[Rfam]
RNA sequence: CCUGCACGGCAUCCGCCGCAGGUCGGGAUGUGAUCCGCGGGGACGGUCCCCGGUCCGGAUUGAACCAGGAA
Numbered sequence: 001c002c003u004g005c006a007c008g009g010c011a012u013c014c015g016c017c018g019c020a021g022g023u024c025g026g027g028a029u030g031u032g033a034u035c036c037g038c039g040g041g042g043a044c045g046g047u048c049c050c051c052g053g054u055c056c057g058g059a060u061u062g063a064a065c066c067a068g069g070a071a
Stems, first nucleotide, its partner, number of pairs: 001022005025066002032061005
This 71-nucleotide RNA from Natrarchaeobius halalkaliphilus belongs to the Rfam family "eL15-Euryarchaeota ribosomal protein leader". The base pairs follow the family's consensus structure, which is taken from published work. It scores 41 bits against the family's covariance model.